RNA sequence: UUUGAGGGGGAUGUUGGCUGGCUCGAUGCAUUCACACACGAUGUAAUUAAUCAAGUGAAGGUAUCGGACCAGGCUUCAUUCCUCUCAAA
Numbered sequence: 001u002u003u004g005a006g007g008g009g010g011a012u013g014u015u016g017g018c019u020g021g022c023u024c025g026a027u028g029c030a031u032u033c034a035c036a037c038a039c040g041a042u043g044u045a046a047u048u049a050a051u052c053a054a055g056u057g058a059a060g061g062u063a064u065c066g067g068a069c070c071a072g073g074c075u076u077c078a079u080u081c082c083u084c085u086c087a088a089a
Base pairs, nucleotide, nucleotide: 001089002088003087004086005085006084007083008082009081010080011079012078013077016074018072019071020070021069024066025065026064